[Rfam]
RNA sequence: AAAGCAGGCGAGGUGAUCGCGAUCAGGGCAUCGGUGGCUUCGGCCCCGAGGCGCUUGGUUGAGGAAAGUCCGGGCUCCCCGAUGGCCAGGCUUGCUGGGUAACGCCCAGUGCGGGUGACCGUGAGGAGAGUGCCACAGAAACACACCGCCGAUGGCCGGCUUGCCGGCACAGGCAAGGGUGCAAAGGUGCGGUAAGAGCGCACCAGCAGCAUCGAGAGGUGCUGGCUCGGUAAACCCCGGCUGGGAGCAAGGCCGAGGAACGACGGUUGGCCAUCAACCCCGUUCCGCUGAUGUGCGCCGCUCGAGGUCGCCGGUAACGGCGAUCCCAGAUAGAUGAUCACCCCCCUUCUUUGGAAGGGAGAACAGAACCCGGCUUAUGUCCUGCUUUCACC
Numbered sequence: 001a002a003a004g005c006a007g008g009c010g011a012g013g014u015g016a017u018c019g020c021g022a023u024c025a026g027g028g029c030a031u032c033g034g035u036g037g038c039u040u041c042g043g044c045c046c047c048g049a050g051g052c053g054c055u056u057g058g059u060u061g062a063g064g065a066a067a068g069u070c071c072g073g074g075c076u077c078c079c080c081g082a083u084g085g086c087c088a089g090g091c092u093u094g095c096u097g098g099g100u101a102a103c104g105c106c107c108a109g110u111g112c113g114g115g116u117g118a119c120c121g122u123g124a125g126g127a128g129a130g131u132g133c134c135a136c137a138g139a140a141a142c143a144c145a146c147c148g149c150c151g152a153u154g155g156c157c158g159g160c161u162u163g164c165c166g167g168c169a170c171a172g173g174c175a176a177g178g179g180u181g182c183a184a185a186g187g188u189g190c191g192g193u194a195a196g197a198g199c200g201c202a203c204c205a206g207c208a209g210c211a212u213c214g215a216g217a218g219g220u221g222c223u224g225g226c227u228c229g230g231u232a233a234a235c236c237c238c239g240g241c242u243g244g245g246a247g248c249a250a251g252g253c254c255g256a257g258g259a260a261c262g263a264c265g266g267u268u269g270g271c272c273a274u275c276a277a278c279c280c281c282g283u284u285c286c287g288c289u290g291a292u293g294u295g296c297g298c299c300g301c302u303c304g305a306g307g308u309c310g311c312c313g314g315u316a317a318c319g320g321c322g323a324u325c326c327c328a329g330a331u332a333g334a335u336g337a338u339c340a341c342c343c344c345c346c347u348u349c350u351u352u353g354g355a356a357g358g359g360a361g362a363a364c365a366g367a368a369c370c371c372g373g374c375u376u377a378u379g380u381c382c383u384g385c386u387u388u389c390a391c392c
Stems, first nucleotide, its partner, number of pairs: 001388008011378001012342007020061008066376003070373005075247004084274001089242003093239002095109005110124001111122004125237002130235002132231003146178002148174003153169002156166001186204006206226001207224007251299003261290002264287003306325008